RNA sequence: AAGAUUACUUCAAAUGGGAGCAUUGAUUGAUUGGUCCUAUGUUCAUAAGUGCUUCUCUUUGGGGUAGUUUUA
Numbered sequence: 001a002a003g004a005u006u007a008c009u010u011c012a013a014a015u016g017g018g019a020g021c022a023u024u025g026a027u028u029g030a031u032u033g034g035u036c037c038u039a040u041g042u043u044c045a046u047a048a049g050u051g052c053u054u055c056u057c058u059u060u061g062g063g064g065u066a067g068u069u070u071u072a
Base pairs, nucleotide, nucleotide: 004068005067006066007065008064009063010062011061014059016057017056018055019053020052021051022050023049024048026046027045